The record is a 102-nucleotide RNA sequence from Limosilactobacillus panis, which matches "23S methyl RNA motif" in Rfam.
RNA sequence: UCGUUUAGCAAUUGAUAUCGAACAGUGUCGUUAGUAAUUGCUAAGGAGUACUUCACUAAAGCAGCGUUUCGCCGUGCCCACACCGAGACCCUGCUUUUUUUA
Numbered sequence: 001u002c003g004u005u006u007a008g009c010a011a012u013u014g015a016u017a018u019c020g021a022a023c024a025g026u027g028u029c030g031u032u033a034g035u036a037a038u039u040g041c042u043a044a045g046g047a048g049u050a051c052u053u054c055a056c057u058a059a060a061g062c063a064g065c066g067u068u069u070c071g072c073c074g075u076g077c078c079c080a081c082a083c084c085g086a087g088a089c090c091c092u093g094c095u096u097u098u099u100u101u102a
Stems, first nucleotide, its partner, number of pairs: 002046001004045011016033002019030002058097007066089006074083003

Rfam classes the family as a cis-regulatory element.
It scores 69 bits against the family's covariance model.
Taxonomically the source falls in Limosilactobacillus panis (Bacteria, Bacillati, Lactobacillales, Lactobacillaceae).